[Rfam]
RNA sequence: UUCUCGGUCUCUCGCAACGGUGUCUGGUUUACUCGGUCAGGUCCGGAAGGAAGCAGCCAAAGUCGGAAUUACUGUGUGCCGAGAAGAAGCUGGGAAGGUU
Numbered sequence: 001u002u003c004u005c006g007g008u009c010u011c012u013c014g015c016a017a018c019g020g021u022g023u024c025u026g027g028u029u030u031a032c033u034c035g036g037u038c039a040g041g042u043c044c045g046g047a048a049g050g051a052a053g054c055a056g057c058c059a060a061a062g063u064c065g066g067a068a069u070u071a072c073u074g075u076g077u078g079c080c081g082a083g084a085a086g087a088a089g090c091u092g093g094g095a096a097g098g099u100u
Base pairs, nucleotide, nucleotide: 004093005092006091007090008089010084011083012082013081014080015076017075018074019073020072021071022070023067024066025065026064027063028062029061033060035058036057037056042051043050044049
Dot-bracket structure: ...(((((.((((((.(((((((((((((...(.(((....(((....)))....))).))))))))..)))))))...)))))....))))).......

A member of the RNA family "Bacterial small signal recognition particle RNA" from Haemophilus influenzae, 100 nucleotides long. Rfam's curators put it in the seed alignment. The signal recognition particle (SRP) is a universally conserved ribonucleoprotein involved in the co-translational targeting of proteins to membranes. Pairs were carried over by alignment from the consensus structure, which is taken from published work.